[Rfam]
The family of this 76-nucleotide RNA sequence is "L13-Bacteroidia ribosomal protein leader". The literature on the family includes a 2020 paper in BMC Microbiol by Eckert and Weinberg, "Discovery of 20 novel ribosomal leader candidates in bacteria and archaea". The family's RNA type in Rfam is cis-regulatory leader.
RNA sequence: GGGGAUACACUUAGAGUCCCCUGGGUAUGGUGUGUUAAUAGCACAUCCUGUGGCCGGGAUUUGCGGUUAGUGAAUC
Number, nucleotide and partner (000 for none) at each position: 001g021002g020003g019004g018005a017006u016007a000008c000009a000010c000011u000012u000013a000014g000015a000016g006017u005018c004019c003020c002021c001022u000023g000024g000025g000026u000027a000028u000029g000030g000031u000032g000033u000034g000035u070036u069037a068038a067039u066040a000041g064042c063043a062044c000045a060046u059047c058048c057049u056050g000051u000052g000053g000054c000055c000056g049057g048058g047059a046060u045061u000062u043063g042064c041065g000066g039067u038068u037069a036070g035071u000072g000073a000074a000075u000076c000